[Rfam]
RNA sequence: AACCGUUGGGCUCUUCUCCUCCCAGAAACCCCAACCUGGAAUGUACUGCACCUCCUCCCGCGGUACAUUUACAAUCAGGACCGCUGCACCUCCUCCCGCAGCGGUCCUUUUCG
Numbered sequence: 001a002a003c004c005g006u007u008g009g010g011c012u013c014u015u016c017u018c019c020u021c022c023c024a025g026a027a028a029c030c031c032c033a034a035c036c037u038g039g040a041a042u043g044u045a046c047u048g049c050a051c052c053u054c055c056u057c058c059c060g061c062g063g064u065a066c067a068u069u070u071a072c073a074a075u076c077a078g079g080a081c082c083g084c085u086g087c088a089c090c091u092c093c094u095c096c097c098g099c100a101g102c103g104g105u106c107c108u109u110u111u112c113g
Stems, first nucleotide, its partner, number of pairs: 005035003008031003011025001039070010077108011